[Rfam]
RNA sequence: UUCUUAUCGAGAGAGGCGGAGGGACAGGCCCGAUGAAGCCCAGCAACCGAUUCCAGUGCACAGCCAACCUGGCUGAAGCGCAAGGAAUGUCAUGGUGCUAAUUCCUUCAAAACUGCGGACAAUAUGGCAGUUUUGACAGAUGAGAA
Numbered sequence: 001u002u003c004u005u006a007u008c009g010a011g012a013g014a015g016g017c018g019g020a021g022g023g024a025c026a027g028g029c030c031c032g033a034u035g036a037a038g039c040c041c042a043g044c045a046a047c048c049g050a051u052u053c054c055a056g057u058g059c060a061c062a063g064c065c066a067a068c069c070u071g072g073c074u075g076a077a078g079c080g081c082a083a084g085g086a087a088u089g090u091c092a093u094g095g096u097g098c099u100a101a102u103u104c105c106u107u108c109a110a111a112a113c114u115g116c117g118g119a120c121a122a123u124a125u126g127g128c129a130g131u132u133u134u135g136a137c138a139g140a141u142g143a144g145a146a
Stems, first nucleotide, its partner, number of pairs: 001146008013041001015040003021031003026106003042099004047095002049091003103138001108135009
Shown here is a 146-nucleotide RNA from Paenibacillus uliginis, a member of the family "SAM riboswitch aptamer (S box leader)". The SAM riboswitch is found upstream of a number of genes which code for proteins involved in methionine or cysteine biosynthesis in Gram-positive bacteria. The SAM riboswitch acts at the level of transcription termination control. The predicted structure consists of a complex stem-loop region followed by a single stem loop terminator region. Lineage of the source: Bacteria > Bacillati > Bacilli > Paenibacillaceae > Paenibacillus uliginis.